RNA sequence: AUCGCCCGCAUCGGGGAGUAGCGACCGCAUCAUCUGAUGUGGGGGCAUGUCAACAUAUUCGCGCGGGAGACGCGCGUGGCAUGUCCGGCAAUGAGGCUUUGCGAGACCGUGGCGAAGGGACCCUGCGGGCGGGGUCCGUCUAUCGCCC
Number, nucleotide and partner (000 for none) at each position: 001a000002u000003c000004g000005c000006c000007c000008g000009c000010a000011u000012c000013g000014g000015g000016g000017a000018g000019u000020a000021g000022c000023g000024a000025c000026c041027g040028c039029a000030u000031c000032a000033u000034c000035u000036g000037a000038u000039g028040u027041g026042g000043g086044g085045g084046c083047a082048u081049g080050u079051c078052a077053a000054c000055a000056u000057a000058u000059u000060c076061g075062c074063g073064c072065g000066g000067g000068a000069g000070a000071c000072g064073c063074g062075c061076g060077u052078g051079g050080c049081a048082u047083g046084u045085c044086c043087g000088g000089c000090a000091a000092u000093g000094a000095g000096g000097c000098u000099u000100u000101g000102c000103g000104a000105g000106a000107c000108c000109g000110u000111g000112g000113c000114g000115a000116a000117g000118g000119g000120a000121c000122c000123c000124u000125g000126c000127g000128g000129g000130c000131g000132g000133g000134g000135u000136c000137c000138g000139u000140c000141u000142a000143u000144c000145g000146c000147c000148c000

The family of this 148-nucleotide sequence from Ketogulonicigenium vulgare is "Manganese Mn2+ riboswitch aptamer (yybP-ykoY)". Lineage of the source: Bacteria > Pseudomonadati > Rhodobacterales > Ketogulonicigenium > Ketogulonicigenium vulgare. This RNA was originally discovered in E. coli during a large scale screen and was named SraF. The family was later found to exist upstream of related families of protein genes in many bacteria, including the the yybP and ykoK genes in B. subtilis. The specific functions of these proteins are unknown, but this structured RNA element may be involved in their genetic regulation as a riboswitch. The base pairs follow the family's consensus structure. Its family is annotated with manganese ion binding in the Gene Ontology.